The record is a 74-nucleotide RNA from Galemys pyrenaicus, which matches "mir-192/215 microRNA precursor family" in Rfam.
RNA sequence: AUAGGAAGAUGACCUAUGAAUUGACAGACGGUUUGGCUGAAUUUGUCUGUCAUUUCUGUAGGCCAAUAUCCUGU
Numbered sequence: 001a002u003a004g005g006a007a008g009a010u011g012a013c014c015u016a017u018g019a020a021u022u023g024a025c026a027g028a029c030g031g032u033u034u035g036g037c038u039g040a041a042u043u044u045g046u047c048u049g050u051c052a053u054u055u056c057u058g059u060a061g062g063c064c065a066a067u068a069u070c071c072u073g074u
Stems, first nucleotide, its partner, number of pairs: 001074006008067001010065002013062004018056003022052010
The source organism's lineage runs through Eukaryota, Metazoa, Craniata, Sarcopterygii and Galemys. A reference for the family is Ambros (2001), "microRNAs: tiny regulators with great potential", Cell.